Annotation:
Shown here is a 584-nucleotide part of an RNA from Vibrio maritimus, a member of the family "Bacterial large subunit ribosomal RNA". The source organism's lineage runs through Bacteria, Pseudomonadati, Gammaproteobacteria, Vibrionales and Vibrio. Clan: LSU clan.
RNA sequence: CCCGCGGCUAGACGGAAAGACCCCGUGAACCUUUACUACAGCUUGGCACUGAACAUUGACCCUACAUGUGUAGGAUAGGUGGGAGCUUUGAAACGAGUACGCCAGUAUUCGUGGAGCCGUCCUUGAAAUACCACCCUUGUAGUGUUGAUGUUCUAACUUGGUCCCUAAUCGGGGAUGAGGACAGUGCCUGGUGGGUAGUUUGACUGGGGCGGUCUCCUCCCAAAGAGUAACGGAGGAGCACGAAGGUGGGCUAAUCACGGUUGGACAUCGUGAGGUUAGUGCAAUGGCAUAAGCCGCUUGACUGCGAGAAUGACAAUUCGAGCAGGUGCGAAAGCAGGUCAUAGUGAUCCGGUGGUUCUGAAUGGAAGGGCCAUCGCUCAACGGAUAAAAGGUACUCCGGGGAUAACAGGCUGAUACCGCCCAAGAGUUCAUAUCGACGGCGGUGUUUGGCACCUCGAUGUCGGCUCAUCACAUCCUGGGGCUGAAGUCGGUCCCAAGGGUAUGGCUGUUCGCCAUUUAAAGUGGUACGCGAGCUGGGUUUAGAACGUCGUGAGACAGUUCGGUCCCUAUCUGCCGUGGGCGUU
Numbered sequence: 001c002c003c004g005c006g007g008c009u010a011g012a013c014g015g016a017a018a019g020a021c022c023c024c025g026u027g028a029a030c031c032u033u034u035a036c037u038a039c040a041g042c043u044u045g046g047c048a049c050u051g052a053a054c055a056u057u058g059a060c061c062c063u064a065c066a067u068g069u070g071u072a073g074g075a076u077a078g079g080u081g082g083g084a085g086c087u088u089u090g091a092a093a094c095g096a097g098u099a100c101g102c103c104a105g106u107a108u109u110c111g112u113g114g115a116g117c118c119g120u121c122c123u124u125g126a127a128a129u130a131c132c133a134c135c136c137u138u139g140u141a142g143u144g145u146u147g148a149u150g151u152u153c154u155a156a157c158u159u160g161g162u163c164c165c166u167a168a169u170c171g172g173g174g175a176u177g178a179g180g181a182c183a184g185u186g187c188c189u190g191g192u193g194g195g196u197a198g199u200u201u202g203a204c205u206g207g208g209g210c211g212g213u214c215u216c217c218u219c220c221c222a223a224a225g226a227g228u229a230a231c232g233g234a235g236g237a238g239c240a241c242g243a244a245g246g247u248g249g250g251c252u253a254a255u256c257a258c259g260g261u262u263g264g265a266c267a268u269c270g271u272g273a274g275g276u277u278a279g280u281g282c283a284a285u286g287g288c289a290u291a292a293g294c295c296g297c298u299u300g301a302c303u304g305c306g307a308g309a310a311u312g313a314c315a316a317u318u319c320g321a322g323c324a325g326g327u328g329c330g331a332a333a334g335c336a337g338g339u340c341a342u343a344g345u346g347a348u349c350c351g352g353u354g355g356u357u358c359u360g361a362a363u364g365g366a367a368g369g370g371c372c373a374u375c376g377c378u379c380a381a382c383g384g385a386u387a388a389a390a391g392g393u394a395c396u397c398c399g400g401g402g403a404u405a406a407c408a409g410g411c412u413g414a415u416a417c418c419g420c421c422c423a424a425g426a427g428u429u430c431a432u433a434u435c436g437a438c439g440g441c442g443g444u445g446u447u448u449g450g451c452a453c454c455u456c457g458a459u460g461u462c463g464g465c466u467c468a469u470c471a472c473a474u475c476c477u478g479g480g481g482c483u484g485a486a487g488u489c490g491g492u493c494c495c496a497a498g499g500g501u502a503u504g505g506c507u508g509u510u511c512g513c514c515a516u517u518u519a520a521a522g523u524g525g526u527a528c529g530c531g532a533g534c535u536g537g538g539u540u541u542a543g544a545a546c547g548u549c550g551u552g553a554g555a556c557a558g559u560u561c562g563g564u565c566c567c568u569a570u571c572u573g574c575c576g577u578g579g580g581c582g583u584u
Base pairs, nucleotide, nucleotide: 001580002579003578004577005576006575007574008573010572011571012570014567015566022401023400024399025398027397028396029393030392031391032390033389035199036198037197038196042191043190045188046187047186048185051153052152053151054150055149056148057147058146059145060144062142063141064140065139066138068136078135079134080133081132082131085117086116093112094111095110096109097108098107099106100105157179158178159177161176162175163174164173165172202214203213204212205211215237216236217235218234219233220232238382240339241338246297247296248295250294251293252278253277255273256272257271258270259269260268279288280287302325303324304323305322308319309318310317327336328335329334350376351375352374353373354372355371356370358369359368410451411450412449414448415445416444417443418442419441420440421439425435426434462537463535464534465533466532467529468526469525470524471523472522475500476499478495479494480493481492482491483490502516503515504514505513506512543561544560545559546558547556548555549554